[Rfam]
The family of this 89-nucleotide RNA sequence from Brachypteracias leptosomus is "mir-2131 microRNA precursor family".
Its family is annotated with miRNA-mediated post-transcriptional gene silencing and RISC complex in the Gene Ontology.
The match comes from Rfam's covariance-model search (97 bits).
Taxonomically the source falls in Brachypteracias (Eukaryota, Chordata, Dipnotetrapodomorpha, Neognathae).
RNA sequence: UCUUGUGGCUUCUAUGCAGAAGUGCACAGAAACAGCUAUUUGCUAUUGAAAAGUUGGUUGUUACCGUUCUUCUGAUGGGUGCUGCUGGA
Numbered sequence: 001u002c003u004u005g006u007g008g009c010u011u012c013u014a015u016g017c018a019g020a021a022g023u024g025c026a027c028a029g030a031a032a033c034a035g036c037u038a039u040u041u042g043c044u045a046u047u048g049a050a051a052a053g054u055u056g057g058u059u060g061u062u063a064c065c066g067u068u069c070u071u072c073u074g075a076u077g078g079g080u081g082c083u084g085c086u087g088g089a
Stems, first nucleotide, its partner, number of pairs: 001089003005085005011079005017074006026067002029064001031062008040053002